This 212-nucleotide sequence from Brettanomyces naardenensis belongs to the Rfam family "Small nucleolar RNA snR43". The match comes from Rfam's covariance-model search (69 bits). NCBI's taxonomy places the organism under Eukaryota, Ascomycota, Saccharomycotina, Pichiomycetes, Brettanomyces. Gene Ontology terms of the family: RNA processing and nucleolus. Rfam classes the family as an H/ACA-box small nucleolar RNA. For this family Rfam cites "The RNA world of the nucleolus: two major families of small RNAs defined by different box elements with related functions" (Balakin et al., Cell, 1996). Clan: SNORA9 clan.
[Rfam]
RNA sequence: UACUCCACCUUCUGCCCCAUGUCCUGCUAGAUGCAAUAGGACAAUGGGUUCUGGUGUGGAGAAGAUUAAGUACUAUCAGUAUAUAUCUAUAGAUCGAUCAAUGUCACUUCGACUGGAUAUAUAUUGAUAGGCAAUUCCAUUUCUAUUGGUUCAUAAAUUGUGCACUUUGAAUACUCCAGUUGUAUCGGUGCCAAGGACUAGAGAAUACAUGU
Dot-bracket structure: ..((((.........((((((((((............)))))).)))).........)))).........(..(((((((((((((((..........................))))))))))))))..).).......((((..(((((..........(((((....((((....)).))...)))))....))))).)))).......